[Rfam]
RNA sequence: AACUUUUUCCCCUAGGCCUGCUGACGUAGCCUACAGAGAAGUCUGCAUGGUACGAAGGGAGGAAAAGUU
Number, nucleotide and partner (000 for none) at each position: 001a069002a068003c067004u066005u000006u000007u000008u060009c059010c058011c057012c000013u055014a000015g053016g051017c000018c000019u047020g046021c000022u000023g043024a042025c041026g034027u033028a000029g000030c000031c000032u000033a027034c026035a000036g000037a000038g000039a000040a000041g025042u024043c023044u000045g000046c020047a019048u000049g000050g000051u016052a000053c015054g000055a013056a000057g011058g010059g009060a008061g000062g000063a000064a000065a000066a004067g003068u002069u001
Shown here is a 69-nucleotide RNA sequence from Astyanax mexicanus, a member of the family "MAT2A 3'UTR stem loop A". A search with the family's covariance model found it, with a score of 53 bits. The family's consensus secondary structure is taken from published work. Rfam 15.1 lists 595 matches to the family in 507 species. The organism belongs to Astyanax, within Eukaryota.